The family of this 186-nucleotide RNA sequence from Stagnimonas aquatica is "6S / SsrS RNA". Rfam describes the family as follows. E. coli 6S RNA was the first non coding RNA to be sequenced, but its function was unknown until recently. It consists of 184 nucleotides that fold into an extended hairpin structure with a large single-stranded internal bulge. The 6S RNA specifically associates with RNA polymerase holoenzyme containing the sigma70 specificity factor. It scores 86 bits against the family's covariance model. Pairs were carried over by alignment from the consensus structure, which is taken from published work.
RNA sequence: UGUCUCCUGCGGUGUUCGACGGCUCCGUCCAAACCCCUUGAGCCUAAUUGCAAAACCCCGGGAGCCUUACCCGGUUCUGGCGUGCAGGCCCACCUUGCAGUGGGAAGCCCAAAGGCCGGCGCGGUGCCCACUUGAGACGUUCGUCUCAAGGUCAGUGACGAUGGCCACGGCACAGGCGGGAGACAC
Numbered sequence: 001u002g003u004c005u006c007c008u009g010c011g012g013u014g015u016u017c018g019a020c021g022g023c024u025c026c027g028u029c030c031a032a033a034c035c036c037c038u039u040g041a042g043c044c045u046a047a048u049u050g051c052a053a054a055a056c057c058c059c060g061g062g063a064g065c066c067u068u069a070c071c072c073g074g075u076u077c078u079g080g081c082g083u084g085c086a087g088g089c090c091c092a093c094c095u096u097g098c099a100g101u102g103g104g105a106a107g108c109c110c111a112a113a114g115g116c117c118g119g120c121g122c123g124g125u126g127c128c129c130a131c132u133u134g135a136g137a138c139g140u141u142c143g144u145c146u147c148a149a150g151g152u153c154a155g156u157g158a159c160g161a162u163g164g165c166c167a168c169g170g171c172a173c174a175g176g177c178g179g180g181a182g183a184c185a186c
Base pairs, nucleotide, nucleotide: 002184003183004182005181006180007179008178009177010176012173013172014171015170017169018168036151037150039148040147041146042145044143060129061128062127064125065124066123068121071119072118073117074116077115078114084108085107089104090103091102092101093100
Dot-bracket structure: .(((((((((.((((.((.................((.((((.(...............(((.(((.(..((((..((.....((...(((((......)))))..)).....)))))).).))).))).............).)))).))................))))))..)))))))))..